[Rfam]
RNA sequence: GAUGCUUUCCGUUAGGUGAGGCUCCUAUACGUACAACGCUGCUGCUCAGAAACAUCGAGAGAUGCCAAUUGAGUCAACUGGAACUGCCCAUCAAGGCUUUUUCUAAUGUAGCUGAGUAACCUCUAGGCGUAUAGUGCUAAAACUAAACGAUUGGGAUGCGAA
Numbered sequence: 001g002a003u004g005c006u007u008u009c010c011g012u013u014a015g016g017u018g019a020g021g022c023u024c025c026u027a028u029a030c031g032u033a034c035a036a037c038g039c040u041g042c043u044g045c046u047c048a049g050a051a052a053c054a055u056c057g058a059g060a061g062a063u064g065c066c067a068a069u070u071g072a073g074u075c076a077a078c079u080g081g082a083a084c085u086g087c088c089c090a091u092c093a094a095g096g097c098u099u100u101u102u103c104u105a106a107u108g109u110a111g112c113u114g115a116g117u118a119a120c121c122u123c124u125a126g127g128c129g130u131a132u133a134g135u136g137c138u139a140a141a142a143c144u145a146a147a148c149g150a151u152u153g154g155g156a157u158g159c160g161a162a
Stems, first nucleotide, its partner, number of pairs: 005158001007156004011148002013094001015144003020138003025134008038112005044074005053064004080103004086097003114123003

Shown here is a 162-nucleotide RNA sequence from Lacticaseibacillus brantae, a member of the family "M-box riboswitch aptamer (ykoK leader)". NCBI's taxonomy places the organism under Bacteria, Bacilli, Lactobacillales, Lactobacillaceae, Lacticaseibacillus brantae. About the family: M-box riboswitch, also know as ykoK leader is described as a metaloregulatory RNA that sense divalent metals and function as a genetic control element of genes related to divalent metal transport in bacteria. Pairs were carried over by alignment from the consensus structure.